RNA: Small nucleolar RNA SNORD115
RNA sequence: GGGUCAAUGAUGAGAUCUUAUAUUGUCUUGAGAGAUGACCACCUAAAAAUCAUGCUCAGUAGGAUUAUGCUGGAGCCC
Numbered sequence: 001g002g003g004u005c006a007a008u009g010a011u012g013a014g015a016u017c018u019u020a021u022a023u024u025g026u027c028u029u030g031a032g033a034g035a036u037g038a039c040c041a042c043c044u045a046a047a048a049a050u051c052a053u054g055c056u057c058a059g060u061a062g063g064a065u066u067a068u069g070c071u072g073g074a075g076c077c078c
Base pairs, nucleotide, nucleotide: 001078002077003076004075005072006071008069009068